[Rfam]
RNA sequence: GGGCUUAUGGUGUAGUUGGUUAUCACGCUCGCUUUGCAUUCGUGUUUGCGAGAGGUGUCGGGUUCAAUUCCCGAUGGGUCCA
Number, nucleotide and partner (000 for none) at each position: 001g081002g080003g079004c078005u077006u076007a075008u000009g000010g026011u025012g024013u000014a000015g000016u000017u000018g000019g000020u000021u000022a000023u000024c012025a011026c010027g000028c052029u051030c050031g049032c048033u000034u000035u000036g000037c000038a000039u000040u000041c000042g000043u000044g000045u000046u000047u000048g032049c031050g030051a029052g028053a000054g000055g000056u000057g000058u074059c073060g072061g071062g070063u000064u000065c000066a000067a000068u000069u000070c062071c061072c060073g059074a058075u007076g006077g005078g004079u003080c002081c001082a000
RNA: tRNA
Organism: Psilocybe cyanescens